[Rfam]
RNA: Bacterial RNase P class A
RNA sequence: AACGCAAAAUGUUCUAUCGCUGCCUUUAAACAGGCGGAGGAAAGUCCGGGCAACAUAGAGCAUCCUGCUUCCUAACGGGAAGGCGCCACGCAGCGGGCGACAGCAAGUGCCACAGAGAAUAUACCGCCGGCCCGCCGGUAAGGGUGAAAACGUGAGGUAAGAGCUCACGGCUUGCAUGGGCGACCAUGUUUGCGGUAAACCUCAGGAGUUGAAAAGCCAAAUAGGUUACAGUAAUAGAGUUGCUCGCUUUGUAUACUCAGGUAUAACUGUAAUGGGUAGGCUGUUAGAGCCUGUUAGCAAUAACAAGCCAAGAUUAAUGAUAGAAACUGUUGAAAGACAGCACAAAACCCGGCUUAUAAUUUUGCAGCUGUA
Numbered sequence: 001a002a003c004g005c006a007a008a009a010u011g012u013u014c015u016a017u018c019g020c021u022g023c024c025u026u027u028a029a030a031c032a033g034g035c036g037g038a039g040g041a042a043a044g045u046c047c048g049g050g051c052a053a054c055a056u057a058g059a060g061c062a063u064c065c066u067g068c069u070u071c072c073u074a075a076c077g078g079g080a081a082g083g084c085g086c087c088a089c090g091c092a093g094c095g096g097g098c099g100a101c102a103g104c105a106a107g108u109g110c111c112a113c114a115g116a117g118a119a120u121a122u123a124c125c126g127c128c129g130g131c132c133c134g135c136c137g138g139u140a141a142g143g144g145u146g147a148a149a150a151c152g153u154g155a156g157g158u159a160a161g162a163g164c165u166c167a168c169g170g171c172u173u174g175c176a177u178g179g180g181c182g183a184c185c186a187u188g189u190u191u192g193c194g195g196u197a198a199a200c201c202u203c204a205g206g207a208g209u210u211g212a213a214a215a216g217c218c219a220a221a222u223a224g225g226u227u228a229c230a231g232u233a234a235u236a237g238a239g240u241u242g243c244u245c246g247c248u249u250u251g252u253a254u255a256c257u258c259a260g261g262u263a264u265a266a267c268u269g270u271a272a273u274g275g276g277u278a279g280g281c282u283g284u285u286a287g288a289g290c291c292u293g294u295u296a297g298c299a300a301u302a303a304c305a306a307g308c309c310a311a312g313a314u315u316a317a318u319g320a321u322a323g324a325a326a327c328u329g330u331u332g333a334a335a336g337a338c339a340g341c342a343c344a345a346a347a348c349c350c351g352g353c354u355u356a357u358a359a360u361u362u363u364g365c366a367g368c369u370g371u372a
Base pairs, nucleotide, nucleotide: 004365005364006363007362008361009360010359011357012325013324014323015322016321017320018319020037021036022035023034024033025032042355043354044353046352047351048350049349050348051211052210053209054208058258059257060256063207064206065205066204067203068082069081070080071079072078083101084099085098086097087096102202103201107200108199109196110195111194124143125142126139127138128137129136130135151169152168153167154166155165156164174189175188176187177186178185179184215282216281217280218279225273226272227271228270229269230268249266250265251264252263253262289308290307292305293304294303295302296301